The family of this 74-nucleotide sequence from Listeria monocytogenes is "L17 ribosomal protein downstream element".
The organism belongs to Listeria monocytogenes serotype 4b, within Bacteria.
Pairs were carried over by alignment from the consensus structure, which is taken from published work.
Rfam classes the family as a cis-regulatory element.

Nucleotides: 074
Base pairs, nucleotide, nucleotide: 002042003041004040005039011036012035013034016031017030018029019028051074052073053072054071055070056069057068058067059066
Number, partner (000 for none) and nucleotide at each position: 001000g002042g003041a004040g005039u006000g007000u008000c009000a010000u011036g012035a013034u014000a015000u016031g017030g018029a019028g020000a021000c022000u023000u024000c025000g026000u027000g028019u029018u030017c031016c032000u033000u034013g035012u036011c037000u038000a039005g040004c041003u042002c043000u044000g045000u046000g047000u048000u049000u050000c051074c052073u053072a054071g055070u056069c057068u058067a059066c060000u061000u062000a063000a064000u065000c066059g067058u068057a069056g070055g071054c072053u073052a074051g